[Rfam]
RNA: Small nucleolar RNA SNORA44
RNA sequence: CAGCAUGUUUCCUAGGGCUGUGGCUGGCUGUGGCAUGGGAGGUCCAACUGCAUGCACGAGCGACCUGCAGACUCUGGCAGCCCAGGUCAGCACAGCUGCAGCCGCAGGCGCCUUGCCUCUAAUA
Dot-bracket structure: ..........((....((((((......))))))..))............................(.((.........((.(((..........))).....))......))...).......